A member of the RNA family "Mammalian CPEB3 ribozyme" from Parnassius apollo, 77 nucleotides long. The match comes from Rfam's covariance-model search (55 bits). Taxonomically the source falls in Parnassius (Eukaryota, Opisthokonta, Allotriocarida, Papilionoidea).

RNA sequence: CGGCACAUGUUGGGGGUCAUUGUAGAAGCGUGCUCGUCGCGACCCCUGCCAGCCCUUUUCAGGGCUGCAAUUCUGUG
Numbered sequence: 001c002g003g004c005a006c007a008u009g010u011u012g013g014g015g016g017u018c019a020u021u022g023u024a025g026a027a028g029c030g031u032g033c034u035c036g037u038c039g040c041g042a043c044c045c046c047u048g049c050c051a052g053c054c055c056u057u058u059u060c061a062g063g064g065c066u067g068c069a070a071u072u073c074u075g076u077g
Base pairs, nucleotide, nucleotide: 013046014045015044016043017042018041021077022076023075024074025073026072027071028040029039030038050067051066052065053064054063055062056061